[Rfam]
RNA sequence: ACCCCUGAACUCUGAGGAUAAGACCCUAUCAAUAUUGCCUCUGCUUCUAUGUUCAGUCCUAGUAGUGCAAUAUUGCUUAUAGGGUCUUUUCCUUGGGGGGAA
Numbered sequence: 001a002c003c004c005c006u007g008a009a010c011u012c013u014g015a016g017g018a019u020a021a022g023a024c025c026c027u028a029u030c031a032a033u034a035u036u037g038c039c040u041c042u043g044c045u046u047c048u049a050u051g052u053u054c055a056g057u058c059c060u061a062g063u064a065g066u067g068c069a070a071u072a073u074u075g076c077u078u079a080u081a082g083g084g085u086c087u088u089u090u091c092c093u094u095g096g097g098g099g100g101a102a
Base pairs, nucleotide, nucleotide: 020088021087022086023085024084025083026082027081028080029079030075031074032073033072034071035070036069037068038067041065042064043063044062045061
This 102-nucleotide RNA sequence from Phrynocephalus forsythii belongs to the Rfam family "mir-454 microRNA precursor family". The base pairs follow the family's consensus structure, which was predicted with RNAalifold. Rfam 15.1 lists 696 matches to the family in 601 species. The literature on the family includes a 2006 paper in Genome Res by Berezikov et al., "Many novel mammalian microRNA candidates identified by extensive cloning and RAKE analysis". The match comes from Rfam's covariance-model search (87 bits).